RNA sequence: AUAGUGACUAUGGCAAAGUCUAGCAAACAGCCAUACACCGAGUCUUGCGUGGUGUGCUGGCGACAGGCACUGCGAAGCGUAGACAGGGGGAGUGCAGGCCGGGCGAAGAGUACAGGACAUUAGCCCCGAAAUUGACAUUGUCGAGAUGGCCGACCAGCUCCACAUACUGGGAAGGCAGCAAAGAGCUGACCGUUAUGCGAGGGCAGCGAAAUGUCUCCGGGGUUCGAACCUG
Numbered sequence: 001a002u003a004g005u006g007a008c009u010a011u012g013g014c015a016a017a018g019u020c021u022a023g024c025a026a027a028c029a030g031c032c033a034u035a036c037a038c039c040g041a042g043u044c045u046u047g048c049g050u051g052g053u054g055u056g057c058u059g060g061c062g063a064c065a066g067g068c069a070c071u072g073c074g075a076a077g078c079g080u081a082g083a084c085a086g087g088g089g090g091a092g093u094g095c096a097g098g099c100c101g102g103g104c105g106a107a108g109a110g111u112a113c114a115g116g117a118c119a120u121u122a123g124c125c126c127c128g129a130a131a132u133u134g135a136c137a138u139u140g141u142c143g144a145g146a147u148g149g150c151c152g153a154c155c156a157g158c159u160c161c162a163c164a165u166a167c168u169g170g171g172a173a174g175g176c177a178g179c180a181a182a183g184a185g186c187u188g189a190c191c192g193u194u195a196u197g198c199g200a201g202g203g204c205a206g207c208g209a210a211a212u213g214u215c216u217c218c219g220g221g222g223u224u225c226g227a228a229c230c231u232g
Base pairs, nucleotide, nucleotide: 010034011033012032013031014030018028019027021200023198024197036089038087039086042084043083044082045081046079047078048074049073050072051071052070053069054068055067057066058065059064120226123223124222125221126220127219128218143217144216145215146214147213148212149176150175151174154170155169156168157167185207186206187205188204190202191201
Group II catalytic intron D1-D4-6: a 232-nucleotide RNA sequence. It is one of the family's seed sequences.